RNA sequence: AGUGCUUUAAUGUGAACAUUAAGCACCAUGUUGGUGCAAUGGACAGUGAGUGACCCUUUUAACGCUCCGUGAAAGCGAUCACAAAGAAACUCUGCAAUACUUGUUUGC
Number, nucleotide and partner (000 for none) at each position: 001a000002g026003u025004g024005c023006u022007u021008u000009a020010a019011u018012g017013u000014g000015a000016a000017c012018a011019u010020u009021a007022a006023g005024c004025a003026c002027c103028a102029u000030g100031u099032u000033g000034g000035u096036g095037c094038a093039a000040u000041g090042g000043a000044c086045a000046g000047u083048g082049a000050g079051u078052g000053a000054c000055c000056c000057u075058u074059u073060u072061a000062a070063c069064g068065c000066u000067c000068c064069g063070u062071g000072a060073a059074a058075g057076c000077g000078a051079u050080c000081a000082c048083a047084a000085a000086g044087a000088a000089a000090c041091u000092c000093u038094g037095c036096a035097a000098u000099a031100c030101u000102u028103g027104u000105u000106u000107g000108c000
The record is a 108-nucleotide RNA sequence from Citrobacter koseri, which matches "ES222 sRNA" in Rfam.
Differentially expressed under several chemical stress and fermentation conditions.
The family's RNA type in Rfam is small RNA.
The organism belongs to Citrobacter koseri, within Bacteria.
The base pairs follow the family's consensus structure, which was predicted with RNAfold.